[Rfam]
RNA sequence: AAACAACCCCUAUGUAUUGGAUCUUUGGCAGUUUUGGCUCCCAAUGUCACUUUUGACUUAGUCUUCGCUGACGUGGCACCCACAUCUUUUAAGUGAGGUACCACGUGUCGACCAUUAUGGGUGCCACGUCAGCGAAUACUAAGUCAAAAGUGGCCUUAGGGGUCAAAACCGCCAUAGAUCCAAUACAUAAGGGGCUGUUU
Numbered sequence: 001a002a003a004c005a006a007c008c009c010c011u012a013u014g015u016a017u018u019g020g021a022u023c024u025u026u027g028g029c030a031g032u033u034u035u036g037g038c039u040c041c042c043a044a045u046g047u048c049a050c051u052u053u054u055g056a057c058u059u060a061g062u063c064u065u066c067g068c069u070g071a072c073g074u075g076g077c078a079c080c081c082a083c084a085u086c087u088u089u090u091a092a093g094u095g096a097g098g099u100a101c102c103a104c105g106u107g108u109c110g111a112c113c114a115u116u117a118u119g120g121g122u123g124c125c126a127c128g129u130c131a132g133c134g135a136a137u138a139c140u141a142a143g144u145c146a147a148a149a150g151u152g153g154c155c156u157u158a159g160g161g162g163u164c165a166a167a168a169c170c171g172c173c174a175u176a177g178a179u180c181c182a183a184u185a186c187a188u189a190a191g192g193g194g195c196u197g198u199u200u
Base pairs, nucleotide, nucleotide: 001200002199004197005196007194008193011189012188013187014186015185016184017183018182019181020180021179022178023177024176026174027173028172029171031169032168033167034166035165036164037163038162039161040160041159043157044156071129072128074126075125076124077123078122079121080120081119
Rfam assigns this 200-nucleotide sequence from Medicago truncatula to the family "MIR2619 microRNA precursor family". Its family is annotated with miRNA-mediated post-transcriptional gene silencing and RISC complex in the Gene Ontology. Lineage of the source: Eukaryota > Viridiplantae > Streptophytina > eudicotyledons > Medicago.